The record is a 114-nucleotide sequence, which matches "Actinobacteria sRNA Ms_IGR-7" in Rfam. Rfam 15.1 lists 463 matches to the family in 194 species. Rfam classes the family as a small RNA. For this family Rfam cites "Identification of small RNAs in Mycobacterium smegmatis using heterologous Hfq" (Li et al., RNA, 2013). It scores 52 bits against the family's covariance model.
[Rfam]
RNA sequence: GCAAAGGGUCUUCAAAUUUGGCAAGUUUAAGACUUGUGGAGUCUUAAACUUGCCAAAUUUGAAGACCCUUGGCUUAUUGGGUAGCCUCUUUAAGAGGUGGUGCGGAAUGUCAAG
Numbered sequence: 001g002c003a004a005a006g007g008g009u010c011u012u013c014a015a016a017u018u019u020g021g022c023a024a025g026u027u028u029a030a031g032a033c034u035u036g037u038g039g040a041g042u043c044u045u046a047a048a049c050u051u052g053c054c055a056a057a058u059u060u061g062a063a064g065a066c067c068c069u070u071g072g073c074u075u076a077u078u079g080g081g082u083a084g085c086c087u088c089u090u091u092a093a094g095a096g097g098u099g100g101u102g103c104g105g106a107a108u109g110u111c112a113a114g
Stems, first nucleotide, its partner, number of pairs: 002072001004070013018056005024050004029045001031043003098112005